[Rfam]
RNA: FMN riboswitch aptamer (RFN element)
RNA sequence: CCCGCUUCUCAGGGCGGGGUGCAAUUCCCCACCGGCGGUGUCCCGUUUUUUGGCGGGGAGCCCGCGAGCGCUUCCGGGGGUCCGGAAGGUCAGCAGAUCCGGUGAGAAGCCGGAGCCGACGGUGACAGUCCGGAUGAAAGAGAAGACGG
Dot-bracket structure: ....((((((......(((.......))).[[((((((.....................[[))))..((.......................))...(((((.......)))))]])).(((.....]]))).......))))))....